[Rfam]
RNA: EcpR1
RNA sequence: AUGCCUUACGGAUGCUCAGGUCCGCCGCAUCUCCUGGGAGUUCGUAGGCUCGGCCAGGCUGGGGACGAUUGUUGCCUCUACAACACCGUCUCCAGCCGGCCACCUU
Numbered sequence: 001a002u003g004c005c006u007u008a009c010g011g012a013u014g015c016u017c018a019g020g021u022c023c024g025c026c027g028c029a030u031c032u033c034c035u036g037g038g039a040g041u042u043c044g045u046a047g048g049c050u051c052g053g054c055c056a057g058g059c060u061g062g063g064g065a066c067g068a069u070u071g072u073u074g075c076c077u078c079u080a081c082a083a084c085a086c087c088g089u090c091u092c093c094a095g096c097c098g099g100c101c102a103c104c105u106u
Stems, first nucleotide, its partner, number of pairs: 003050001005048006015038006052101004057097007